[Rfam]
Rfam assigns this 77-nucleotide RNA from Cynara cardunculus to the family "Small nucleolar RNA snoR53Y". A search with the family's covariance model found it, with a score of 59 bits. Clan: snoR53 clan. For this family Rfam cites "Multiple snoRNA gene clusters from Arabidopsis" (Brown et al., RNA, 2001).
RNA sequence: GUUCCCUAUGAUGCUUGAAUUUGACCAUGCUAAUUCUGAUAUUGAUGAUACCGUUUUCAGUCAUUUCUGAGGGAACA
Dot-bracket structure: (((((((..............................................................))))))).